[Rfam]
RNA sequence: UCCACUAACCAUGACGGGAACCGCGCUGGUUUCUACCGCAGUGAUACGCAAUCAACAAGUCCUCUAUCACCGGGUGGAAACUAGCUCGGGUCCCCGAUUGGUGA
Dot-bracket structure: ...............((((.((..(((((((((((((.(.((((((..................)))))).))))))))))))))..)).))))..........

The family of this 104-nucleotide sequence from Caenorhabditis japonica is "mir-36 microRNA precursor family". For this family Rfam cites "Dynamic expression of small non-coding RNAs, including novel microRNAs and piRNAs/21U-RNAs, during Caenorhabditis elegans development" (Kato et al., Genome Biol, 2009). The base pairs follow the family's consensus structure, which was predicted with WAR.